[Rfam]
Nucleotides: 123
Base pairs, nucleotide, nucleotide: 001123002122003121004120006118007117008116009115010114011113012112013111014110015109016108017107018106020104021103022102024100025099026098027097029095030094031093033091034090035089036088038086039085041083042082045079046078047077
Number, partner (000 for none) and nucleotide at each position: 001123a002122a003121u004120a005000a006118g007117a008116g009115a010114a011113u012112g013111a014110c015109a016108a017107a018106u019000c020104a021103g022102a023000u024100u025099u026098u027097u028000c029095c030094u031093u032000c033091u034090g035089a036088u037000u038086u039085u040000c041083a042082g043000c044000u045079u046078u047077u048000c049000u050000u051000c052000u053000u054000g055000a056000a057000a058000a059000a060000a061000a062000u063000u064000c065000a066000a067000a068000u069000c070000a071000a072000a073000c074000u075000a076000a077047a078046a079045a080000u081000g082042u083041u084000a085039a086038a087000u088036a089035u090034u091033a092000a093031g094030g095029g096000g097027a098026a099025a100024a101000u102022u103021c104020u105000u106018a107017u108016u109015u110014g111013u112012c113011a114010u115009u116008c117007u118006c119000c120004u121003a122002u123001u
The record is a 123-nucleotide RNA sequence from Gossypium raimondii, which matches "MIR7504 microRNA precursor family" in Rfam. It scores 98 bits against the family's covariance model. Lineage of the source: Eukaryota > eudicotyledons > Malvales > Malvoideae > Gossypium. The family has 8 seed sequences and 7,343 matches in Rfam 15.1.